[Rfam]
RNA sequence: AGCAAAAUGAUAAACUGUUUUGUAACUGAACUGAAUGUUGAAUUCAUAUCAGAUUGGUCUUCAAAGUUCUCUGAUUGAU
Numbered sequence: 001a002g003c004a005a006a007a008u009g010a011u012a013a014a015c016u017g018u019u020u021u022g023u024a025a026c027u028g029a030a031c032u033g034a035a036u037g038u039u040g041a042a043u044u045c046a047u048a049u050c051a052g053a054u055u056g057g058u059c060u061u062c063a064a065a066g067u068u069c070u071c072u073g074a075u076u077g078a079u
Stems, first nucleotide, its partner, number of pairs: 001079001003077003

The record is a 79-nucleotide sequence from Trema andersonii, which matches "Small nucleolar RNA R160" in Rfam. For this family Rfam cites "The high diversity of snoRNAs in plants: identification and comparative study of 120 snoRNA genes from Oryza sativa" (Chen et al., Nucleic Acids Res, 2003). The family's RNA type in Rfam is C/D-box small nucleolar RNA. Its family is annotated with RNA processing and nucleolus in the Gene Ontology. The match comes from Rfam's covariance-model search (52 bits). The organism belongs to Trema, within Eukaryota. Rfam's curators write: snoR160 is a C/D box small nucleolar RNA, which acts as a methylation guide for 25S ribosomal RNA in plants. snoR160 has been alternatively named snoZ270 in rice.